[Rfam]
The record is a 74-nucleotide sequence, which matches "S15-Methanomicrobia ribosomal protein leader" in Rfam. The base pairs follow the family's consensus structure, which is taken from published work. A reference for the family is Eckert and Weinberg (2020), "Discovery of 20 novel ribosomal leader candidates in bacteria and archaea", BMC Microbiol.
RNA sequence: CGCACAUCAUGUGCUGGCUGAGGUAAGUCCGACGUGCUCAAGUAGCACUGCCCUGUAUGUGGGCUUGGGAUUGC
Numbered sequence: 001c002g003c004a005c006a007u008c009a010u011g012u013g014c015u016g017g018c019u020g021a022g023g024u025a026a027g028u029c030c031g032a033c034g035u036g037c038u039c040a041a042g043u044a045g046c047a048c049u050g051c052c053c054u055g056u057a058u059g060u061g062g063g064c065u066u067g068g069g070a071u072u073g074c
Base pairs, nucleotide, nucleotide: 002014003013004012005011006010023074024073025072026071029069030068034048035047036046037045038044050064051063052062053061